[Rfam]
RNA sequence: UGCUUGAUGAUGAAUGUCUCUUUUGAUUGCUUGCUCUUUCUGUAAGCAAAGUGAUAAGUCAUUUCACCGACACUGAAAGCA
Numbered sequence: 001u002g003c004u005u006g007a008u009g010a011u012g013a014a015u016g017u018c019u020c021u022u023u024u025g026a027u028u029g030c031u032u033g034c035u036c037u038u039u040c041u042g043u044a045a046g047c048a049a050a051g052u053g054a055u056a057a058g059u060c061a062u063u064u065c066a067c068c069g070a071c072a073c074u075g076a077a078a079g080c081a
Stems, first nucleotide, its partner, number of pairs: 001081005
RNA: Small nucleolar RNA SNORD102
Organism: Dryoscopus gambensis